The family of this 118-nucleotide RNA sequence from Oscillibacter sp. 1-3 is "THF (Tetrahydrofolate) riboswitch aptamer". The family's consensus secondary structure is taken from published work. Lineage of the source: Bacteria > Bacillati > Bacillota > Clostridia > Oscillibacter. From the family's description: Tetrahydrofolate (THF) riboswitch was first reported for Ames et al. as an RNA motif in 5' untranslated (5'-UTR)regions of folate transport and biosynthesis genes in Firmicutes genomes.
RNA sequence: GGCAGAGUAGGGACACACGUGUCAACGGGCGGCAAGGGCCGUCCGCAGUGCUGGGAAGACGGGGAGUUGCUUUCCGGACGAAAGGGAAACCGCAGUGUGUGUCCCGCAUCCCGCUGCC
Numbered sequence: 001g002g003c004a005g006a007g008u009a010g011g012g013a014c015a016c017a018c019g020u021g022u023c024a025a026c027g028g029g030c031g032g033c034a035a036g037g038g039c040c041g042u043c044c045g046c047a048g049u050g051c052u053g054g055g056a057a058g059a060c061g062g063g064g065a066g067u068u069g070c071u072u073u074c075c076g077g078a079c080g081a082a083a084g085g086g087a088a089a090c091c092g093c094a095g096u097g098u099g100u101g102u103c104c105c106g107c108a109u110c111c112c113g114c115u116g117c118c
Base pairs, nucleotide, nucleotide: 001118002117003116004115005114010105011104012103013102014101015100016099017098018097019096020094021093022092048079049078051077052076053075054074055073056072057071058070062111063110064109066107084090